[Rfam]
RNA sequence: CAUCACUCUCAGGGCGGGGCGAAAUUCCCCACCGGCGGUAUGCGGAGGGAUGCCCCUUCGCGAGCCCGCGAGCGCCUUGCGCCUCUUGGCGGAAGGGUCAGCAGAUCAGGUGCGAGGCCUGAGCCGACGGUCAUAGUCCGGAUGGAAGAGAGCAGCA
Numbered sequence: 001c002a003u004c005a006c007u008c009u010c011a012g013g014g015c016g017g018g019g020c021g022a023a024a025u026u027c028c029c030c031a032c033c034g035g036c037g038g039u040a041u042g043c044g045g046a047g048g049g050a051u052g053c054c055c056c057u058u059c060g061c062g063a064g065c066c067c068g069c070g071a072g073c074g075c076c077u078u079g080c081g082c083c084u085c086u087u088g089g090c091g092g093a094a095g096g097g098u099c100a101g102c103a104g105a106u107c108a109g110g111u112g113c114g115a116g117g118c119c120u121g122a123g124c125c126g127a128c129g130g131u132c133a134u135a136g137u138c139c140g141g142a143u144g145g146a147a148g149a150g151a152g153c154a155g156c157a
Stems, first nucleotide, its partner, number of pairs: 003155001006152005017029003031137002033126002035069004064124002072102002106122005128140003
Background:
Shown here is a 157-nucleotide RNA sequence from Thioclava pacifica, a member of the family "FMN riboswitch aptamer (RFN element)". Lineage of the source: Bacteria > Alphaproteobacteria > Paracoccaceae > Thioclava > Thioclava pacifica. Gene Ontology term of the family: FMN binding. A search with the family's covariance model found it, with a score of 100 bits.